Background: A member of the RNA family "Vibrio RNA AS7" from Vibrio navarrensis, 169 nucleotides long. Taxonomically the source falls in Vibrio (Bacteria, Pseudomonadota, Gammaproteobacteria, Vibrionaceae). On this family, see Liu et al., Nucleic Acids Res 2009: "Experimental discovery of sRNAs in Vibrio cholerae by direct cloning, 5S/tRNA depletion and parallel sequencing".

RNA sequence: GGCGUUUGCAACAGUAAUUUACUGCGAUCAGUGAUGUCACCACCAAUGUGGUAAGGUAAACCACAGUUGGCAAAUGAGACAAAUUCGCCGCGCUCAAACAUGAUGAUUUGCGCGUCUUCACUGAGACGGCGUGCACGCGCUGCUGCUGAGGCGCCACCUGCGACACCAC
Numbered sequence: 001g002g003c004g005u006u007u008g009c010a011a012c013a014g015u016a017a018u019u020u021a022c023u024g025c026g027a028u029c030a031g032u033g034a035u036g037u038c039a040c041c042a043c044c045a046a047u048g049u050g051g052u053a054a055g056g057u058a059a060a061c062c063a064c065a066g067u068u069g070g071c072a073a074a075u076g077a078g079a080c081a082a083a084u085u086c087g088c089c090g091c092g093c094u095c096a097a098a099c100a101u102g103a104u105g106a107u108u109u110g111c112g113c114g115u116c117u118u119c120a121c122u123g124a125g126a127c128g129g130c131g132u133g134c135a136c137g138c139g140c141u142g143c144u145g146c147u148g149a150g151g152c153g154c155c156a157c158c159u160g161c162g163a164c165a166c167c168a169c
Base pairs, nucleotide, nucleotide: 001167002166004164005163006162008161009160010159012024013023014022015021016020032056035053036052037051038050039049040048061070062069076154080150087143088142092140093139095137099133101131102130104128105127107125108124112121114119